[Rfam]
RNA sequence: UCUUCCUUGGUCUAGUGGUCAUGAUUUCCGCUUGUCAUCGCAAGAUUACGAGCGCGGGAGACCGGGGUUCGAUUCCCCGAGGGAGAG
Numbered sequence: 001u002c003u004u005c006c007u008u009g010g011u012c013u014a015g016u017g018g019u020c021a022u023g024a025u026u027u028c029c030g031c032u033u034g035u036c037a038u039c040g041c042a043a044g045a046u047u048a049c050g051a052g053c054g055c056g057g058g059a060g061a062c063c064g065g066g067g068u069u070c071g072a073u074u075c076c077c078c079g080a081g082g083g084a085g086a087g
Stems, first nucleotide, its partner, number of pairs: 001086007010025003027058005063079005
A member of the RNA family "tRNA" from Paraphaeosphaeria sporulosa, 87 nucleotides long. Rfam classes the family as a transfer RNA. The family's consensus secondary structure is taken from published work. The match comes from Rfam's covariance-model search (46 bits). The organism belongs to Paraphaeosphaeria, within Eukaryota.